Rfam assigns this 139-nucleotide sequence from Eragrostis curvula to the family "Small nucleolar RNA Z247". On this family, see Chen et al., Nucleic Acids Res 2003: "The high diversity of snoRNAs in plants: identification and comparative study of 120 snoRNA genes from Oryza sativa". By type it is a C/D-box small nucleolar RNA. Pairs were carried over by alignment from the consensus structure, which was predicted with PFOLD. The organism belongs to Eragrostis, within Eukaryota.
RNA sequence: CCACUUGAAGAAGAAGAGCUCGUGGAGUACAUCCUCACCGGGCUUGACUACGACUACAAUUCCAUCGUUUCCUCCAUUAUCGCGCGCACUGAUCCCGUCAGCAUUAGCGAGCUCUACUCCCAAUUGCUUGCUUUUGAGA
Numbered sequence: 001c002c003a004c005u006u007g008a009a010g011a012a013g014a015a016g017a018g019c020u021c022g023u024g025g026a027g028u029a030c031a032u033c034c035u036c037a038c039c040g041g042g043c044u045u046g047a048c049u050a051c052g053a054c055u056a057c058a059a060u061u062c063c064a065u066c067g068u069u070u071c072c073u074c075c076a077u078u079a080u081c082g083c084g085c086g087c088a089c090u091g092a093u094c095c096c097g098u099c100a101g102c103a104u105u106a107g108c109g110a111g112c113u114c115u116a117c118u119c120c121c122a123a124u125u126g127c128u129u130g131c132u133u134u135u136g137a138g139a
Stems, first nucleotide, its partner, number of pairs: 004138005089107005